[Rfam]
RNA: c-di-GMP-I riboswitch aptamer
Organism: Vibrio cholerae
RNA sequence: UCACGCACAGGGCAAACCAUUCGAAAGAGUGGGACGCAAAGCCUCCGGCCUAAACCAGAAGACAUGGUAGGUAGCGGGGUUACCGAU
Numbered sequence: 001u002c003a004c005g006c007a008c009a010g011g012g013c014a015a016a017c018c019a020u021u022c023g024a025a026a027g028a029g030u031g032g033g034a035c036g037c038a039a040a041g042c043c044u045c046c047g048g049c050c051u052a053a054a055c056c057a058g059a060a061g062a063c064a065u066g067g068u069a070g071g072u073a074g075c076g077g078g079g080u081u082a083c084c085g086a087u
Base pairs, nucleotide, nucleotide: 012037013036017032018031019030020029021028022027040081041080042079043078045077046076047075048072049071050070055066058063